Nucleotides: 173
Stems, first nucleotide, its partner, number of pairs: 001016006029172004035166002041159005046153005062148006073140003077136004082131002086114004092107004
Number, partner (000 for none) and nucleotide at each position: 001016u002015g003014u004013a005012u006011c007000g008000c009000g010000a011006g012005g013004u014003g015002c016001a017000g018000a019000c020000u021000g022000a023000a024000g025000g026000c027000a028000g029172u030171g031170u032169g033000g034000a035166g036165c037000a038000a039000a040000a041159c042158u043157g044156c045155g046153a047152g048151c049150u050149g051000a052000c053000g054000a055000a056000u057000a058000g059000a060000a061000a062148u063147u064146g065145g066144a067143u068000a069000u070000g071000a072000g073140g074139c075138u076000g077136u078135c079134u080133g081000c082131g083130u084000g085000a086114g087113g088112a089111c090000g091000a092107g093106u094105c095104a096000g097000c098000a099000u100000g101000u102000g103000a104095u105094g106093a107092c108000g109000a110000a111089g112088u113087c114086c115000c116000a117000u118000a119000c120000u121000c122000a123000u124000c125000c126000g127000g128000a129000c130083a131082c132000u133080c134079g135078g136077a137000c138075a139074g140073u141000a142000a143067a144066u145065c146064c147063g148062g149050c150049a151048g152047u153046u154000g155045u156044g157043c158042a159041g160000g161000g162000a163000a164000g165036g166035c167000g168000g169032u170031g171030u172029a173000a